Rfam assigns this 363-nucleotide RNA from Roseibium suaedae to the family "Alphaproteobacteria transfer-messenger RNA". On this family, see Williams and Bartel, RNA 1996: "Phylogenetic analysis of tmRNA secondary structure". About the family: Bacterial tmRNA, also known as 10Sa RNA or SsrA, is named for its dual tRNA and mRNA-like properties.

[Rfam]
RNA sequence: GGGGUUUCCUUUGCCGGGGAGAGCGCCUAUAUCAGGGCUGCUGGGUAACCAGCUACGGCAAUAAACGGUCAGUGCAAUAAACCUAUCGGACCCGGGGGCGGUACCCGGCGCCUCCACCACAGGGCAUCAGGCAAGAGCCAGGUGCCUUGCGGCGGGGGCGAAAUAGGAUCGACGAGGGCGUAAAGACUGUACUUUUGCUCGGCAUUGUACCACCGUCAUCGGGCUAUCUUAAUAGUUGCAAACGACAACUAUGCUUCGGACGUCGCUGUCGCUGCGUAAUGCGGUGCCAGUAGUCCACUAAAGCCCUUCCGGGUAGCACCGGAAGGCGGGGUCCGGAGGCACCUGGCAACAGAAGCCUCCACU
Dot-bracket structure: .......................................(((((....)))))...(((((.....(..((((........(((.(((...(((((.......)))))(((((((......................................)))))))............)))))).......))))..)..)))))(((..[.[..[[.))).....]].].]......................................................................................................[[[[..((((((]]]]..........))))))...